[Rfam]
RNA sequence: UCUCAUGCGGCGAUUCUCUAGAGGGAUGCACUUUUUUUUGACUUGAAAGAGAAAAAGGUGCGUCUCUUUAGAGGAUUACUGUUUGAGA
Numbered sequence: 001u002c003u004c005a006u007g008c009g010g011c012g013a014u015u016c017u018c019u020a021g022a023g024g025g026a027u028g029c030a031c032u033u034u035u036u037u038u039u040g041a042c043u044u045g046a047a048a049g050a051g052a053a054a055a056a057g058g059u060g061c062g063u064c065u066c067u068u069u070a071g072a073g074g075a076u077u078a079c080u081g082u083u084u085g086a087g088a
Stems, first nucleotide, its partner, number of pairs: 001088005007082004012077003016073003020069016038053002